Rfam assigns this 102-nucleotide RNA from Microcebus murinus to the family "Vault RNA".
The match comes from Rfam's covariance-model search (55 bits).
The base pairs follow the family's consensus structure, which is taken from published work.
The literature on the family includes a 2009 paper in Mol Biol Evol by Stadler et al., "Evolution of Vault RNAs".
The family's RNA type in Rfam is non-coding RNA gene.
The organism belongs to Microcebus, within Eukaryota.
RNA sequence: GGGCUGGCAUUAGCUCAAGUGGUUACUUCGGCACGAUGGACUUUUCAUCCAUCUAAUCCCUGCACUGGGGUUCGAGACCCGAUAGUGCUUUCUGACCCUUUA
Dot-bracket structure: .((.(((.....(((....(((....(((((........................................)))))..)))..))).....))).)).....